[Rfam]
A member of the RNA family "MIR8622 microRNA precursor family" from Ectocarpus siliculosus, 211 nucleotides long. A search with the family's covariance model found it, with a score of 212 bits. Rfam links the family to the GO terms RISC complex and miRNA-mediated post-transcriptional gene silencing. NCBI's taxonomy places the organism under Eukaryota, Ochrophyta, Phaeophyceae, Ectocarpaceae, Ectocarpus.
RNA sequence: CCGAAAUCUGCGCCGGAACCAAGCGGCAUCCAACAUUUGUCAUAGCUGUGUUGACCGCCACGGACCAUAAACCCCUGAACGGAGGGUUGUCAGCAGUAGCUGGUGGCAUCAGCUACUGCUGUUAAUCCGCGGUUCAGGAGAUUGGGUUCAGUGGCGGCGAGCACGGCUGUGACAAAUGUUGGAUCCCGCUUGGUUCCGGCGCAGAUUUCGG
Numbered sequence: 001c002c003g004a005a006a007u008c009u010g011c012g013c014c015g016g017a018a019c020c021a022a023g024c025g026g027c028a029u030c031c032a033a034c035a036u037u038u039g040u041c042a043u044a045g046c047u048g049u050g051u052u053g054a055c056c057g058c059c060a061c062g063g064a065c066c067a068u069a070a071a072c073c074c075c076u077g078a079a080c081g082g083a084g085g086g087u088u089g090u091c092a093g094c095a096g097u098a099g100c101u102g103g104u105g106g107c108a109u110c111a112g113c114u115a116c117u118g119c120u121g122u123u124a125a126u127c128c129g130c131g132g133u134u135c136a137g138g139a140g141a142u143u144g145g146g147u148u149c150a151g152u153g154g155c156g157g158c159g160a161g162c163a164c165g166g167c168u169g170u171g172a173c174a175a176a177u178g179u180u181g182g183a184u185c186c187c188g189c190u191u192g193g194u195u196c197c198g199g200c201g202c203a204g205a206u207u208u209c210g211g
Stems, first nucleotide, its partner, number of pairs: 001211026028184006035177007043169010055157007063149002066146001068144003072140001074138007084128003091121011